[Rfam]
RNA sequence: UUGCACAUAGCAACCCCGGGCUCCUCUGAAACUCACCGAUGUAGAAAGAAGCCCCAAUGCUAGUGCUAAAUUUUCGCCCUUUAGUGUUGCAGAUCUGUCGCUUUUGUACCUUUAUCCCCACGACCCAUCUGUGUCAAACAAACGGCUAUAUUA
Numbered sequence: 001u002u003g004c005a006c007a008u009a010g011c012a013a014c015c016c017c018g019g020g021c022u023c024c025u026c027u028g029a030a031a032c033u034c035a036c037c038g039a040u041g042u043a044g045a046a047a048g049a050a051g052c053c054c055c056a057a058u059g060c061u062a063g064u065g066c067u068a069a070a071u072u073u074u075c076g077c078c079c080u081u082u083a084g085u086g087u088u089g090c091a092g093a094u095c096u097g098u099c100g101c102u103u104u105u106g107u108a109c110c111u112u113u114a115u116c117c118c119c120a121c122g123a124c125c126c127a128u129c130u131g132u133g134u135c136a137a138a139c140a141a142a143c144g145g146c147u148a149u150a151u152u153a
Base pairs, nucleotide, nucleotide: 003066004065005064006063010060011059018054019053020052021051022050023048025045026044027043076146077145078144080142081141082140085136086135088133089132090131091130092129093128097124098123099122
RNA: small nucleolar RNA snoR134
Organism: Striga asiatica